[Rfam]
Annotation
This 77-nucleotide RNA from Crocodylus porosus belongs to the Rfam family "Mammalian CPEB3 ribozyme". The family has 14 seed sequences and 5,706 matches in Rfam 15.1.
RNA sequence: GGUUGCAAGUUGGAGGCCCUAGUAUAAGCGUUCAUGGCACAGCCCUGUCCGAUUCCAGUGAAUCUGCGAAUUCUGAU
Number, nucleotide and partner (000 for none) at each position: 001g000002g000003u000004u000005g000006c000007a000008a000009g000010u000011u000012g000013g045014a000015g044016g043017c042018c000019c000020u000021a077022g000023u075024a074025u000026a072027a071028g040029c000030g038031u000032u000033c000034a000035u000036g000037g000038c030039a000040c028041a000042g017043c016044c015045c013046u000047g000048u000049c066050c000051g064052a063053u062054u061055c060056c000057a000058g000059u000060g055061a054062a053063u052064c051065u000066g049067c000068g000069a000070a000071u027072u026073c000074u024075g023076a000077u021